A member of the RNA family "mir-981 microRNA precursor family" from Mizuhopecten yessoensis, 81 nucleotides long.
The family's consensus secondary structure was predicted with RNAalifold.
Gene Ontology terms of the family: miRNA-mediated post-transcriptional gene silencing and RISC complex.
The organism belongs to Mizuhopecten, within Eukaryota.
[Rfam]
RNA sequence: AACUAUUUUGACGGGUUUUGCGAUUUGCGAGCAUUUUAAUAACUACUUGUUCGUUGUCGUCGAAACCUGCCUCAAAUAGUC
Numbered sequence: 001a002a003c004u005a006u007u008u009u010g011a012c013g014g015g016u017u018u019u020g021c022g023a024u025u026u027g028c029g030a031g032c033a034u035u036u037u038a039a040u041a042a043c044u045a046c047u048u049g050u051u052c053g054u055u056g057u058c059g060u061c062g063a064a065a066c067c068u069g070c071c072u073c074a075a076a077u078a079g080u081c
Base pairs, nucleotide, nucleotide: 002080003079004078005077006076012069013068014067015066016065017064018063019062020061029052030051031050032049033048